RNA sequence: GCGGGAAUAGCUCAGUUGAUAGAGCAUCAGCCUUCCAAGCUGAGGGUCGCGAGUUUGAGUCUCGUUUCCCGCU
Numbered sequence: 001g002c003g004g005g006a007a008u009a010g011c012u013c014a015g016u017u018g019a020u021a022g023a024g025c026a027u028c029a030g031c032c033u034u035c036c037a038a039g040c041u042g043a044g045g046g047u048c049g050c051g052a053g054u055u056u057g058a059g060u061c062u063c064g065u066u067u068c069c070c071g072c073u
Base pairs, nucleotide, nucleotide: 001072002071003070004069005068006067007066010025011024012023013022027043028042029041030040031039049065050064051063052062053061

Record summary
The record is a 73-nucleotide RNA from Labilibaculum filiforme, which matches "tRNA" in Rfam. Rfam classes the family as a transfer RNA. The organism belongs to Labilibaculum, within Bacteria. The match comes from Rfam's covariance-model search (68 bits). Transfer RNA (tRNA) molecules are approximately 80 nucleotides in length.